[Rfam]
Overview: The record is a 140-nucleotide RNA from Gadus morhua, which matches "Small nucleolar RNA SNORD10" in Rfam. On this family, see Huttenhofer et al., EMBO J 2001: "RNomics: an experimental approach that identifies 201 candidates for novel, small, non-messenger RNAs in mouse". Rfam classes the family as a C/D-box small nucleolar RNA.
RNA sequence: GUUUAAUGAUGAAAUCCAUGCGUGUCAACUGACUCUGGAGAGUCCUGGUGCGCUGCGGCACUGGUCGGCGUUUUGCCGGCCGGACCGCUGCAGUGCAGCAGGCCUCUGGAGGCAUGAUCAGAGACUAACUAGCUGAAUAC
Numbered sequence: 001g002u003u004u005a006a007u008g009a010u011g012a013a014a015u016c017c018a019u020g021c022g023u024g025u026c027a028a029c030u031g032a033c034u035c036u037g038g039a040g041a042g043u044c045c046u047g048g049u050g051c052g053c054u055g056c057g058g059c060a061c062u063g064g065u066c067g068g069c070g071u072u073u074u075g076c077c078g079g080c081c082g083g084a085c086c087g088c089u090g091c092a093g094u095g096c097a098g099c100a101g102g103c104c105u106c107u108g109g110a111g112g113c114a115u116g117a118u119c120a121g122a123g124a125c126u127a128a129c130u131a132g133c134u135g136a137a138u139a140c
Stems, first nucleotide, its partner, number of pairs: 001140002004137001044102004049097003